[Rfam]
RNA sequence: UCCCUCCAGAUCCCUUUCCCAUCAGAUCUGAAUACUGAUCUUGUGGUCAAAAAAGGAGGAAAAGCAAAAUUCAAGCUGGUCUCAGGCUCUUUGCUGGUGCUGUCCUGCUCUGAGAGAGGCCAGUUGGAAGACAAUC
Dot-bracket structure: ..(((((...........(((.(.((((........))))..))))........)))))................(((((((........(((.................)))...))))))).............